RNA: SAM riboswitch aptamer (S box leader)
RNA sequence: CUCUUAUCUAGAGUGGUGGAGGGACUGGCCCGAUGAAACCCGGCAGCCUGCAUUUAUUUGCAAGGUGCUAAUUCCUACGGUGUAACCGAAAGAUGAGAG
Numbered sequence: 001c002u003c004u005u006a007u008c009u010a011g012a013g014u015g016g017u018g019g020a021g022g023g024a025c026u027g028g029c030c031c032g033a034u035g036a037a038a039c040c041c042g043g044c045a046g047c048c049u050g051c052a053u054u055u056a057u058u059u060g061c062a063a064g065g066u067g068c069u070a071a072u073u074c075c076u077a078c079g080g081u082g083u084a085a086c087c088g089a090a091a092g093a094u095g096a097g098a099g
Stems, first nucleotide, its partner, number of pairs: 001099008013041001015040003021031003027075002042069004047065002049062004073091001078088004
Dot-bracket structure: ((((((((....(.(((...(((...[[)))......))))((((.((((((......)))).))))))...(]]..((((...))))..)))))))))